[Rfam]
RNA: Caulobacter sRNA CrfA
Organism: Brevundimonas sp. M20
Nucleotides: 127
Stems, first nucleotide, its partner, number of pairs: 003039005012029002015026001017024001041062008068126003080120001081118014
Number, partner (000 for none) and nucleotide at each position: 001000a002000c003039u004038c005037g006036g007035g008000a009000a010000g011000c012029g013028c014000a015026g016000c017024g018000u019000u020000u021000c022000g023000a024017c025000g026015c027000a028013g029012c030000u031000g032000c033000a034000g035007c036006c037005c038004g039003g040000a041062g042061g043060c044059g045058u046057u047056u048055c049000g050000g051000g052000g053000a054000g055048g056047a057046a058045a059044c060043g061042u062041c063000c064000g065000c066000u067000c068126g069125a070124c071000a072000a073000g074000a075000g076000c077000g078000a079000a080120a081118g082117a083116a084115a085114g086113c087112c088111c089110g090109c091108c092107g093106c094105g095000a096000u097000g098000u099000a100000u101000c102000c103000c104000c105094c106093g107092c108091g109090g110089c111088g112087g113086g114085c115084u116083u117082u118081u119000u120080u121000a122000u123000u124070g125069u126068c127000u